Shown here is a 72-nucleotide RNA, a member of the family "RAGATH-18 RNA".
Actinobacteria, Firmicutes, Fusobacteria, Thermotogae (1 example).
It is one of the family's seed sequences.
[Rfam]
RNA sequence: ACUGUGGAGUGUAGAUGAACUUGUAAGUAGUAUUGUUUAUACAGUACCAAAGCAUACACGAUGAAGCAGUAA
Dot-bracket structure: (((((...(((((........(((.....(((..((....))..)))....))))))))......)))))..